[Rfam]
RNA sequence: AUACUUACCUGGUAAGGAGACACCAUGAUGACAAAGGUGGUUUUCCCAGGGUGAGGCUCACCCAUUGCACUCCAGGUGUGCUGACCCCUGCGAUUUCCCCAAAUGCAGAAAAUUCGACUGCAAUAUUCAUGGUAUUGGGGGACUACAUUCACACUGUCCCCUG
Numbered sequence: 001a002u003a004c005u006u007a008c009c010u011g012g013u014a015a016g017g018a019g020a021c022a023c024c025a026u027g028a029u030g031a032c033a034a035a036g037g038u039g040g041u042u043u044u045c046c047c048a049g050g051g052u053g054a055g056g057c058u059c060a061c062c063c064a065u066u067g068c069a070c071u072c073c074a075g076g077u078g079u080g081c082u083g084a085c086c087c088c089u090g091c092g093a094u095u096u097c098c099c100c101a102a103a104u105g106c107a108g109a110a111a112a113u114u115c116g117a118c119u120g121c122a123a124u125a126u127u128c129a130u131g132g133u134a135u136u137g138g139g140g141g142a143c144u145a146c147a148u149u150c151a152c153a154c155u156g157u158c159c160c161c162u163g
Base pairs, nucleotide, nucleotide: 012121013120014119016046017045018044019043020042022041023040024039025038026037048089049088050087051086053085055082056081057080059078060077061076062075091116092115093114094112095110096109098108137162138161139160140159141158142157
Dot-bracket structure: ...........(((.(((((.(((((..........)))))))))).((((.(.(((.((((............)))).)))..))))).((((((.(.........))).).)))..)))...............((((((..............)))))).
Rfam assigns this 163-nucleotide RNA sequence from Carlito syrichta to the family "U1 spliceosomal RNA". It scores 106 bits against the family's covariance model. It is annotated as a spliceosomal small nuclear RNA.